The record is a 115-nucleotide RNA sequence, which matches "Small nucleolar RNA SNORA26" in Rfam.
Rfam links the family to the GO terms RNA processing and nucleolus.
The family has 76 seed sequences and 1,943 matches in Rfam 15.1.
Clan: SNORA27 clan.
Pairs were carried over by alignment from the consensus structure, which was predicted with RNAalifold.
A reference for the family is Huttenhofer et al. (2001), "RNomics: an experimental approach that identifies 201 candidates for novel, small, non-messenger RNAs in mouse", EMBO J.

RNA sequence: GUGCCUAAGGUUAACACAGCGCCUUAAGAGGCUAACACAGAAGGGCAAAGUAAGUCUCCAUAAAACCCAGAGAAGACUGUGAACCCCUCUCUGGAUCCUGUCUGGAGUCACAGCU
Numbered sequence: 001g002u003g004c005c006u007a008a009g010g011u012u013a014a015c016a017c018a019g020c021g022c023c024u025u026a027a028g029a030g031g032c033u034a035a036c037a038c039a040g041a042a043g044g045g046c047a048a049a050g051u052a053a054g055u056c057u058c059c060a061u062a063a064a065a066c067c068c069a070g071a072g073a074a075g076a077c078u079g080u081g082a083a084c085c086c087c088u089c090u091c092u093g094g095a096u097c098c099u100g101u102c103u104g105g106a107g108u109c110a111c112a113g114c115u
Stems, first nucleotide, its partner, number of pairs: 002047004006039001010036004015031001017028001054109001056107005067094007075086001078083001